[Rfam]
The family of this 36-nucleotide sequence from Enterobacterales bacterium CwR94 is "JUMPstart RNA". It scores 36 bits against the family's covariance model. The organism belongs to Enterobacterales, within Bacteria.
RNA sequence: CGGCGUGGGUUGCUGGAAGCCAGGGGCGGUAGCGUG
Numbered sequence: 001c002g003g004c005g006u007g008g009g010u011u012g013c014u015g016g017a018a019g020c021c022a023g024g025g026g027c028g029g030u031a032g033c034g035u036g
Stems, first nucleotide, its partner, number of pairs: 006023001008021003